This 194-nucleotide RNA sequence belongs to the Rfam family "IMES-1 RNA motif". For this family Rfam cites "Exceptional structured noncoding RNAs revealed by bacterial metagenome analysis" (Weinberg et al., Nature, 2009). Rfam classes the family as a non-coding RNA gene.
[Rfam]
RNA sequence: AGAUAACCAGAUCAGAAAGGGAACUGCAGAACCCAGAAUGAAAAAGUUACUUAGGAAGAGAACAGAAAGGUGAAAGUUCUAGAAAGCUUAGCUAGCAAUAAAGCGAACUAGACCACCGAGGAUAAAAGAGAUCUUAUCCAAGGAUGCAGAAGGUAAUCUCACUUUUGACACCUACUGAUCUCGAUUGAAAAAAA
Numbered sequence: 001a002g003a004u005a006a007c008c009a010g011a012u013c014a015g016a017a018a019g020g021g022a023a024c025u026g027c028a029g030a031a032c033c034c035a036g037a038a039u040g041a042a043a044a045a046g047u048u049a050c051u052u053a054g055g056a057a058g059a060g061a062a063c064a065g066a067a068a069g070g071u072g073a074a075a076g077u078u079c080u081a082g083a084a085a086g087c088u089u090a091g092c093u094a095g096c097a098a099u100a101a102a103g104c105g106a107a108c109u110a111g112a113c114c115a116c117c118g119a120g121g122a123u124a125a126a127a128g129a130g131a132u133c134u135u136a137u138c139c140a141a142g143g144a145u146g147c148a149g150a151a152g153g154u155a156a157u158c159u160c161a162c163u164u165u166u167g168a169c170a171c172c173u174a175c176u177g178a179u180c181u182c183g184a185u186u187g188a189a190a191a192a193a194a
Stems, first nucleotide, its partner, number of pairs: 001052002012041003064176002068173002078112005086104004120139005128160005147167006